[Rfam]
RNA sequence: GGACCUUUAGCUCAGUUGGUUAGAGCAUCCGGCUCAUAACCGGACGGUCAUUGGUUCAAGUCCAAUAAGGUCCA
Numbered sequence: 001g002g003a004c005c006u007u008u009a010g011c012u013c014a015g016u017u018g019g020u021u022a023g024a025g026c027a028u029c030c031g032g033c034u035c036a037u038a039a040c041c042g043g044a045c046g047g048u049c050a051u052u053g054g055u056u057c058a059a060g061u062c063c064a065a066u067a068a069g070g071u072c073c074a
Stems, first nucleotide, its partner, number of pairs: 001073007010026004028044005050066005
Rfam assigns this 74-nucleotide sequence from Mycoplasma mycoides to the family "tRNA". The source organism's lineage runs through Bacteria, Bacillati, Mollicutes, Mycoplasmatales and Mycoplasma. Gene Ontology term of the family: triplet codon-amino acid adaptor activity. The family's consensus secondary structure is taken from published work. By type it is a transfer RNA.